[Rfam]
RNA sequence: UUACGACCAAUGGGGAGCUCGCGAGAUGCGGGCUGAGAGGGAGCGUAUGCCCGCUCCGACCCUAUGAACCUGAUGCGGGUAAUGCCGUCGAAGGGAGUGCGUAUGUCGCAGCCA
Number, nucleotide and partner (000 for none) at each position: 001u000002u000003a000004c000005g000006a102007c101008c000009a000010a098011u000012g062013g061014g060015g000016a000017g033018c032019u031020c030021g029022c000023g000024a000025g000026a000027u000028g000029c021030g020031g019032g018033c017034u000035g000036a000037g000038a000039g000040g057041g056042a055043g054044c053045g000046u000047a000048u000049g000050c000051c000052c000053g044054c043055u042056c041057c040058g000059a000060c014061c013062c012063u000064a000065u000066g000067a000068a000069c094070c093071u092072g000073a000074u000075g088076c087077g086078g085079g000080u000081a000082a000083u000084g000085c078086c077087g076088u075089c000090g000091a000092a071093g070094g069095g000096a000097g000098u010099g000100c000101g007102u006103a000104u000105g000106u000107c000108g000109c000110a000111g000112c000113c000114a000
RNA: TPP riboswitch aptamer (THI element)